This 220-nucleotide RNA sequence from Rugosimonospora africana belongs to the Rfam family "c-di-AMP riboswitch aptamer (ydaO/yuaA leader)". The match comes from Rfam's covariance-model search (51 bits).
[Rfam]
RNA sequence: UGCCACCGGUCGGCGCAACCAGAAAUACGGCAGGAGCGGGGGACCCACGUUCUCCGGCGCGCCACGGCGCGCGUCUUGGGGUGAAGCCGCCUCGUUGACCCUCAAUAGAGCCUGAUUCCGCGCGUGCGGACUGGCGAGAAGGGCCGGCACUUCCGUGCGGCCGGGCACACCCUCGGCCCGAACCCGACAGCUCACCCCGCAGGCGUGGAGGAGACUGCCA
Numbered sequence: 001u002g003c004c005a006c007c008g009g010u011c012g013g014c015g016c017a018a019c020c021a022g023a024a025a026u027a028c029g030g031c032a033g034g035a036g037c038g039g040g041g042g043a044c045c046c047a048c049g050u051u052c053u054c055c056g057g058c059g060c061g062c063c064a065c066g067g068c069g070c071g072c073g074u075c076u077u078g079g080g081g082u083g084a085a086g087c088c089g090c091c092u093c094g095u096u097g098a099c100c101c102u103c104a105a106u107a108g109a110g111c112c113u114g115a116u117u118c119c120g121c122g123c124g125u126g127c128g129g130a131c132u133g134g135c136g137a138g139a140a141g142g143g144c145c146g147g148c149a150c151u152u153c154c155g156u157g158c159g160g161c162c163g164g165g166c167a168c169a170c171c172c173u174c175g176g177c178c179c180g181a182a183c184c185c186g187a188c189a190g191c192u193c194a195c196c197c198c199g200c201a202g203g204c205g206u207g208g209a210g211g212a213g214a215c216u217g218c219c220a
Base pairs, nucleotide, nucleotide: 001035003033036200037199038198039197040196041195046078047077079185080184081183087160088159089158090157163179164178165177166176